A member of the RNA family "UnaL2 LINE 3' element" from Coregonus sp. 'balchen', 55 nucleotides long. For this family Rfam cites "Solution structure of an RNA stem-loop derived from the 3' conserved region of eel LINE UnaL2" (Baba et al., RNA, 2004). It is annotated as a cis-regulatory element. Gene Ontology term of the family: transposition, RNA-mediated.
[Rfam]
RNA sequence: UGCACUCACUAACUGUAAGUCGCUCUGGAUAAGAGCGUCUGCUAAAUAAAAUUAA
Numbered sequence: 001u002g003c004a005c006u007c008a009c010u011a012a013c014u015g016u017a018a019g020u021c022g023c024u025c026u027g028g029a030u031a032a033g034a035g036c037g038u039c040u041g042c043u044a045a046a047u048a049a050a051a052u053u054a055a
Base pairs, nucleotide, nucleotide: 014044015042016041017040021037022036023035024034025033026032

The base pairs follow the family's consensus structure, which is taken from published work. About the family: The eel long interspersed element (LINE) UnaL2 and its partner short interspersed element (SINE) share a conserved 3' tail containing a stem-loop that is critical for their retrotransposition. A search with the family's covariance model found it, with a score of 62 bits.